[Rfam]
RNA: mir-574 microRNA precursor family
Nucleotides: 079
Stems, first nucleotide, its partner, number of pairs: 008073008017064004022059001024057006032049004
Number, partner (000 for none) and nucleotide at each position: 001000a002000g003000g004000c005000c006000u007000g008073g009072a010071a011070a012069g013068a014067g015066a016000a017064g018063c019062a020061a021000g022059g023000u024057c025056u026055g027054a028053u029052c030000u031000g032049c033048a034047g035046c036000c037000u038000c039000c040000a041000u042000g043000g044000c045000a046035g047034c048033u049032g050000u051000u052029g053028a054027u055026c056025a057024g058000c059022c060000c061020u062019u063018g064017c065000c066015u067014c068013u069012c070011u071010u072009u073008u074000u075000c076000u077000c078000c079000a